RNA: Editing element of GABA-3 exon 9
RNA sequence: AAAGUCGCCUACGCAACAGCCAUGGACUGGUUUAUUGCUGUCUGUUAUGCCUUC
Numbered sequence: 001a002a003a004g005u006c007g008c009c010u011a012c013g014c015a016a017c018a019g020c021c022a023u024g025g026a027c028u029g030g031u032u033u034a035u036u037g038c039u040g041u042c043u044g045u046u047a048u049g050c051c052u053u054c
Base pairs, nucleotide, nucleotide: 002053003052007050008049010047011046013045014044016041017040018039019038020037022035023034024033025032026031